[Rfam]
RNA sequence: GGACAGGACUCUGGAGAGACUCCAUCACGGAGCACCGAAGGGGCAAGACGUGGCAAGACGCGCGUUAAAACUCUCAGGUAAAAGGACAGGGAUUGCAGA
Numbered sequence: 001g002g003a004c005a006g007g008a009c010u011c012u013g014g015a016g017a018g019a020c021u022c023c024a025u026c027a028c029g030g031a032g033c034a035c036c037g038a039a040g041g042g043g044c045a046a047g048a049c050g051u052g053g054c055a056a057g058a059c060g061c062g063c064g065u066u067a068a069a070a071c072u073c074u075c076a077g078g079u080a081a082a083a084g085g086a087c088a089g090g091g092a093u094u095g096c097a098g099a
Stems, first nucleotide, its partner, number of pairs: 006094002009091005020032004034079003037075002041073003047066006
A member of the RNA family "Glycine riboswitch aptamer" from Paenibacillus dendritiformis, 99 nucleotides long. The source organism's lineage runs through Bacteria, Bacilli, Caryophanales, Paenibacillaceae and Paenibacillus dendritiformis.